The family of this 119-nucleotide sequence from Halobacillus halophilus is "BsrF". Lineage of the source: Bacteria > Caryophanales > Bacillaceae > Halobacillus > Halobacillus halophilus. A reference for the family is Saito et al. (2008), "Novel small RNA-encoding genes in the intergenic regions of Bacillus subtilis", Gene.
RNA sequence: GCGAUGAGCUGUUUGCGUAAGACGAAGUAUGAGCUUUAAAAGCUAAACGACGAAUGUGGUCGUCGGUACAUUCGCGGCAAUAUAUCAGAAAAGCCUUCCCAUCUUGAAUGGGAAGGCUU
Dot-bracket structure: ............((((......((((((((..((.......))....(((((........))))))))).))))..))))..........((((((((((((.....))))))))))))